[Rfam]
Shown here is a 114-nucleotide RNA sequence from Myripristis murdjan, a member of the family "Potassium channel RNA editing signal".
The match comes from Rfam's covariance-model search (100 bits).
RNA sequence: GUUGGCUAUGGCGACAUGAGACCGGUGACGGUCGGGGGAAAGAUCGUCGGUUCUCUCUGUGCCAUCGCCGGCGUGCUGACCAUCGCCCUGCCAGUGCCAGUCAUCGUAUCAAAC
Numbered sequence: 001g002u003u004g005g006c007u008a009u010g011g012c013g014a015c016a017u018g019a020g021a022c023c024g025g026u027g028a029c030g031g032u033c034g035g036g037g038g039a040a041a042g043a044u045c046g047u048c049g050g051u052u053c054u055c056u057c058u059g060u061g062c063c064a065u066c067g068c069c070g071g072c073g074u075g076c077u078g079a080c081c082a083u084c085g086c087c088c089u090g091c092c093a094g095u096g097c098c099a100g101u102c103a104u105c106g107u108a109u110c111a112a113a114c
Base pairs, nucleotide, nucleotide: 001114002113005110007108008107009106010105011104013102014101015100018097020095037077038076040074049063050062051061
Rfam's curators write: This family represents a group of sequences related to the human potassium channel Kv1.1 hairpin element which directs the efficient modification of an adenosine to inosine by an adenosine deaminase acting on RNA (ADAR). The ADAR modification causes an isoleucine/valine recoding event which lies in the ion-conducting pore of the potassium channel. It is thought that this editing event targets the process of fast inactivation and allows a more rapid recovery from inactivation at negative potentials.
The source organism's lineage runs through Eukaryota, Opisthokonta, Bilateria, Ctenosquamata and Myripristis.